The record is a 148-nucleotide RNA sequence from Hibiscus syriacus, which matches "Small nucleolar RNA snoR145" in Rfam. Lineage of the source: Eukaryota > Euphyllophyta > Gunneridae > rosids > Hibiscus. The family's consensus secondary structure was predicted with mfold. The family's RNA type in Rfam is H/ACA-box small nucleolar RNA. The literature on the family includes a 2009 paper in Nucleic Acids Res by Chen and Wu, "Mining small RNA sequencing data: a new approach to identify small nucleolar RNAs in Arabidopsis". The family has 19 seed sequences and 286 matches in Rfam 15.1. The match comes from Rfam's covariance-model search (100 bits).
RNA sequence: UGUCGAAGGUCACAGCAGGGAGGUGUAAACUCUAUGAAUUGAAACCCCUCUAACAAAUAAACAAAUGCCUUCGCAAAUCCAUUUGCCGAAUCGUAGGAUGCCCAAGUACUCCAUUUUUGGAGCGUCUUGAACCCUCGGCUACAUUUUC
Dot-bracket structure: ...((((((.(.(....).)..(.(.....((.(....).)).....).).................))))))...........(((((.......((.(((((((.........))))).)).))........))))).........